Nucleotides: 179
Base pairs, nucleotide, nucleotide: 005140006139008137009136010135011134012133015130016128017127019126021124028123031120038113040111041110042109046105047104048103050101051100052099054097055075056074059071060070061069062068082096083095146179147178148176149175150173151172152171154165156163157162
Number, partner (000 for none) and nucleotide at each position: 001000u002000g003000c004000g005140c006139a007000g008137c009136g010135c011134g012133u013000g014000c015130u016128u017127g018000a019126g020000c021124a022000c023000g024000a025000u026000g027000u028123c029000g030000c031120g032000g033000a034000a035000c036000c037000g038113c039000a040111c041110g042109c043000c044000c045000u046105u047104g048103a049000g050101c051100c052099g053000g054097g055075c056074g057000g058000u059071g060070c061069g062068g063000a064000u065000a066000u067000a068062u069061u070060g071059c072000u073000g074056c075055g076000u077000c078000a079000u080000c081000a082096c083095c084000u085000c086000g087000g088000c089000c090000a091000u092000g093000c094000u095083g096082g097054c098000g099052c100051g101050g102000g103048u104047c105046a106000u107000g108000c109042g110041c111040g112000c113038g114000a115000u116000a117000u118000a119000g120031c121000c122000g123028g124021u125000u126019c127017c128016g129000u130015a131000a132000a133012g134011c135010g136009c137008g138000a139006u140005g141000g142000u143000c144000a145000c146179g147178a148176c149175g150173g151172g152171c153000a154165g155000c156163a157162g158000g159000a160000a161000a162157u163156u164000c165154u166000c167000g168000a169000g170000c171152g172151u173150c174000g175149c176148g177000u178147u179146u
This 179-nucleotide RNA sequence from Palleronia sediminis belongs to the Rfam family "Ruegeria cis52 sRNA". Taxonomically the source falls in Palleronia (Bacteria, Pseudomonadati, Pseudomonadota, Rhodobacterales). Gene Ontology term of the family: regulation of gene expression. Pairs were carried over by alignment from the consensus structure, which was predicted with RNAfold.